[Rfam]
Notes
The record is a 35-nucleotide RNA sequence from Chitinophaga jiangningensis, which matches "DUF805b RNA" in Rfam. Rfam classes the family as a cis-regulatory element. The source organism's lineage runs through Bacteria, Pseudomonadati, Chitinophagia, Chitinophagales and Chitinophaga.
RNA sequence: AAGGAGAUUGCUGAAAAUCCUGAAGAGAGUAAGCA
Numbered sequence: 001a002a003g004g005a006g007a008u009u010g011c012u013g014a015a016a017a018u019c020c021u022g023a024a025g026a027g028a029g030u031a032a033g034c035a
Stems, first nucleotide, its partner, number of pairs: 002021004010034003